[Rfam]
RNA sequence: GCGCUUAUCAACUGGAUGUGAAAUGCAUUUAUGAAGACAUAUCACAGCCAGCUUUGAUGAGCGUGA
Numbered sequence: 001g002c003g004c005u006u007a008u009c010a011a012c013u014g015g016a017u018g019u020g021a022a023a024u025g026c027a028u029u030u031a032u033g034a035a036g037a038c039a040u041a042u043c044a045c046a047g048c049c050a051g052c053u054u055u056g057a058u059g060a061g062c063g064u065g066a
Stems, first nucleotide, its partner, number of pairs: 005060007013050003017046005024041002
The record is a 66-nucleotide RNA sequence from Dendroctonus ponderosae, which matches "mir-2 microRNA precursor family" in Rfam. The base pairs follow the family's consensus structure, which was predicted with PFOLD. Lineage of the source: Eukaryota > Ecdysozoa > Allotriocarida > Hexapoda > Dendroctonus. The family has 56 seed sequences and 918 matches in Rfam 15.1. On this family, see Lee and Ambros, Science 2001: "An extensive class of small RNAs in Caenorhabditis elegans".